[Rfam]
RNA: Glycine riboswitch aptamer
Organism: Dialister succinatiphilus
RNA sequence: GGACACAUCUCUGGAGAGUCCCAUUCAAUUGGGAGCCGAAGGUGUAAAGGAAUUUCACCCGUAGAAAUUCCGAAUCUCUCAGGCAAAAGGACAGGGCUGGCACA
Numbered sequence: 001g002g003a004c005a006c007a008u009c010u011c012u013g014g015a016g017a018g019u020c021c022c023a024u025u026c027a028a029u030u031g032g033g034a035g036c037c038g039a040a041g042g043u044g045u046a047a048a049g050g051a052a053u054u055u056c057a058c059c060c061g062u063a064g065a066a067a068u069u070c071c072g073a074a075u076c077u078c079u080c081a082g083g084c085a086a087a088a089g090g091a092c093a094g095g096g097c098u099g100g101c102a103c104a
Stems, first nucleotide, its partner, number of pairs: 006099002009096005020033004035084003038080002042078001044076001049071008